RNA sequence: UGUAAAUACCCUCCUUGGGUGUUUCCUCCCUAGACUUAGCCGCGCUCACAAGCGCGGUUUUUUUUGGCCGGG
Numbered sequence: 001u002g003u004a005a006a007u008a009c010c011c012u013c014c015u016u017g018g019g020u021g022u023u024u025c026c027u028c029c030c031u032a033g034a035c036u037u038a039g040c041c042g043c044g045c046u047c048a049c050a051a052g053c054g055c056g057g058u059u060u061u062u063u064u065u066g067g068c069c070g071g072g
Base pairs, nucleotide, nucleotide: 008020009019010018011017040057041056042055043054044053045052046051